[Rfam]
RNA sequence: GGUUUCCAUUGGUGCAAUCCCAUCAACCAUAGAUUUGAGAUGAAAAGCAAUCCCCAGUGGUAGCAAAGAGUUAUCCAUUAAGCGGAGGAAAUAGUAU
Numbered sequence: 001g002g003u004u005u006c007c008a009u010u011g012g013u014g015c016a017a018u019c020c021c022a023u024c025a026a027c028c029a030u031a032g033a034u035u036u037g038a039g040a041u042g043a044a045a046a047g048c049a050a051u052c053c054c055c056a057g058u059g060g061u062a063g064c065a066a067a068g069a070g071u072u073a074u075c076c077a078u079u080a081a082g083c084g085g086a087g088g089a090a091a092u093a094g095u096a097u
Base pairs, nucleotide, nucleotide: 010022011021012020052087054085055084056078059075060074061073062072063071064070
Plastid-rps12 3UTR RNA: a 97-nucleotide sequence from Musa balbisiana. The family's RNA type in Rfam is cis-regulatory element. From the family's description: Plastid rpl20 is a non-coding RNA (ncRNA) recognised in plastids. It was found in the three prime untranslated region (3UTR) of rps12 gene, its 3UTR location sugest a role in transcript maduration. The literature on the family includes a 2023 paper in Plant Commun by Richter et al., "Retrograde signaling in plants: A critical review focusing on the GUN pathway and beyond". Rfam 15.1 lists 1,710 matches to the family in 1,426 species. A search with the family's covariance model found it, with a score of 81 bits.